A member of the RNA family "MIR2619 microRNA precursor family" from Medicago truncatula, 172 nucleotides long.
The source organism's lineage runs through Eukaryota, Embryophyta, Gunneridae, Fabales and Medicago.
The match comes from Rfam's covariance-model search (169 bits).
The base pairs follow the family's consensus structure, which was predicted with RNAalifold.
[Rfam]
RNA sequence: AAAUAACUCCCUAUGUUUUGAUUCUUUGGCAGUUUUGGACCCCCAAAGCAAAAAAUAAAAUAAAAAUUUUGACACGUGGCACCUCACUUAGGGUGCCACGUCAGCGUUGACCGAGUUAACAAUGGACUGGGGGUUCAAAACUGCCGAAGAAUCAAAACAUAAAGGGCUGUUU
Numbered sequence: 001a002a003a004u005a006a007c008u009c010c011c012u013a014u015g016u017u018u019u020g021a022u023u024c025u026u027u028g029g030c031a032g033u034u035u036u037g038g039a040c041c042c043c044c045a046a047a048g049c050a051a052a053a054a055a056u057a058a059a060a061u062a063a064a065a066a067u068u069u070u071g072a073c074a075c076g077u078g079g080c081a082c083c084u085c086a087c088u089u090a091g092g093g094u095g096c097c098a099c100g101u102c103a104g105c106g107u108u109g110a111c112c113g114a115g116u117u118a119a120c121a122a123u124g125g126a127c128u129g130g131g132g133g134u135u136c137a138a139a140a141c142u143g144c145c146g147a148a149g150a151a152u153c154a155a156a157a158c159a160u161a162a163a164g165g166g167c168u169g170u171u172u
Stems, first nucleotide, its partner, number of pairs: 001172002004169002007166002012161034074101002077098007